[Rfam]
RNA sequence: CUCUUAUAAAGAGUGGUGGAGGGACUGGCCCGAUGAAACCCAGCAACCGGCAUAAAUAUAUGCAGUGGUGCUAAAUCCUGCAGCAAAAAGCUGAAAGAUAAGAG
Numbered sequence: 001c002u003c004u005u006a007u008a009a010a011g012a013g014u015g016g017u018g019g020a021g022g023g024a025c026u027g028g029c030c031c032g033a034u035g036a037a038a039c040c041c042a043g044c045a046a047c048c049g050g051c052a053u054a055a056a057u058a059u060a061u062g063c064a065g066u067g068g069u070g071c072u073a074a075a076u077c078c079u080g081c082a083g084c085a086a087a088a089a090g091c092u093g094a095a096a097g098a099u100a101a102g103a104g
Base pairs, nucleotide, nucleotide: 001104002103003102004101005100006099007098013041015040016039017038021031022030023029025080027078028077042072043071044070045069047068048067050063051062052061076096081093082092083091084090